Source information
The family of this 75-nucleotide RNA sequence from Lysinibacillus sphaericus is "RAGATH-18 RNA". The match comes from Rfam's covariance-model search (60 bits). The source organism's lineage runs through Bacteria, Bacillati, Bacillota, Bacilli and Lysinibacillus. It is annotated as a small RNA. From the family's description: Actinobacteria, Firmicutes, Fusobacteria, Thermotogae (1 example).
[Rfam]
RNA sequence: CCCUCGGAGAGUUAUAUCGAACGAAAGUAGAUGGGUUACUUGUAGCGUUUGAAAUCGGACUCGUUGAACAGGGAA
Numbered sequence: 001c002c003c004u005c006g007g008a009g010a011g012u013u014a015u016a017u018c019g020a021a022c023g024a025a026a027g028u029a030g031a032u033g034g035g036u037u038a039c040u041u042g043u044a045g046c047g048u049u050u051g052a053a054a055u056c057g058g059a060c061u062c063g064u065u066g067a068a069c070a071g072g073g074a075a
Base pairs, nucleotide, nucleotide: 001073002072003071004070009062010061011060012059013058022057023056024055030050031049035046036045037044038043